This 85-nucleotide RNA from Eptatretus burgeri belongs to the Rfam family "mir-128 microRNA precursor family".
RNA sequence: UAAGUCUAGACAAGGGGGCCGUGCCACUGUUCUGGGAGUGUGGCCAGAUCUCUCACAGUGAACCGGUCUCUUUGCCUUGGCUCGC
Numbered sequence: 001u002a003a004g005u006c007u008a009g010a011c012a013a014g015g016g017g018g019c020c021g022u023g024c025c026a027c028u029g030u031u032c033u034g035g036g037a038g039u040g041u042g043g044c045c046a047g048a049u050c051u052c053u054c055a056c057a058g059u060g061a062a063c064c065g066g067u068c069u070c071u072u073u074g075c076c077u078u079g080g081c082u083c084g085c
Stems, first nucleotide, its partner, number of pairs: 006079001008077002015070007025060006034054003

Its family is annotated with RISC complex and miRNA-mediated post-transcriptional gene silencing in the Gene Ontology. The literature on the family includes a 2006 paper in FEBS Lett by Xu et al., "Identification of microRNAs from different tissues of chicken embryo and adult chicken". The match comes from Rfam's covariance-model search (50 bits).